[Rfam]
The family of this 133-nucleotide RNA sequence from Varanus komodoensis is "Small nucleolar RNA SNORA47".
Its family is annotated with RNA processing and nucleolus in the Gene Ontology.
It scores 78 bits against the family's covariance model.
By type it is an H/ACA-box small nucleolar RNA.

RNA sequence: UGGAGGACUGAGAAAAUAAAGCAGUUUGUAAGUACUGCAUUUAUUGGUUACAACCUCCAAAAUCAAAACUGCAAAAGCAAUUAUGUUUCUUUGACACCUGUACAGGAACACUGUUGCUUGUUGCAUAUAUUUC
Numbered sequence: 001u002g003g004a005g006g007a008c009u010g011a012g013a014a015a016a017u018a019a020a021g022c023a024g025u026u027u028g029u030a031a032g033u034a035c036u037g038c039a040u041u042u043a044u045u046g047g048u049u050a051c052a053a054c055c056u057c058c059a060a061a062a063u064c065a066a067a068a069c070u071g072c073a074a075a076a077g078c079a080a081u082u083a084u085g086u087u088u089c090u091u092u093g094a095c096a097c098c099u100g101u102a103c104a105g106g107a108a109c110a111c112u113g114u115u116g117c118u119u120g121u122u123g124c125a126u127a128u129a130u131u132u133c
Stems, first nucleotide, its partner, number of pairs: 002058005015045004019040001021038005077124002080121002083118001084116002092110002097106002